[Rfam]
RNA sequence: GAAUUUUUGAUUAACGCCUGCCGAAAUGCGGGCCUUUGGGAAG
Numbered sequence: 001g002a003a004u005u006u007u008u009g010a011u012u013a014a015c016g017c018c019u020g021c022c023g024a025a026a027u028g029c030g031g032g033c034c035u036u037u038g039g040g041a042a043g
Stems, first nucleotide, its partner, number of pairs: 016033006
Rfam assigns this 43-nucleotide sequence from Moellerella wisconsensis to the family "nuoG RNA". NCBI's taxonomy places the organism under Bacteria, Pseudomonadati, Pseudomonadota, Moellerella, Moellerella wisconsensis.